[Rfam]
RNA: MIR2593 microRNA precursor family
Organism: Trifolium pratense
RNA sequence: AUACAAGAAAACAUUCACUUUUUAGAUGCAUUGAAACAUUGAUGUAUCUAGUCUAUGAUAUAGUCUAGAUACAUCAACGUUUCAAUGUAUCUAAAAAGUGAAUGUUUUCUUAUAU
Numbered sequence: 001a002u003a004c005a006a007g008a009a010a011a012c013a014u015u016c017a018c019u020u021u022u023u024a025g026a027u028g029c030a031u032u033g034a035a036a037c038a039u040u041g042a043u044g045u046a047u048c049u050a051g052u053c054u055a056u057g058a059u060a061u062a063g064u065c066u067a068g069a070u071a072c073a074u075c076a077a078c079g080u081u082u083c084a085a086u087g088u089a090u091c092u093a094a095a096a097a098g099u100g101a102a103u104g105u106u107u108u109c110u111u112a113u114a115u
Stems, first nucleotide, its partner, number of pairs: 002114002005111003009107005015101011027089011039077006049067003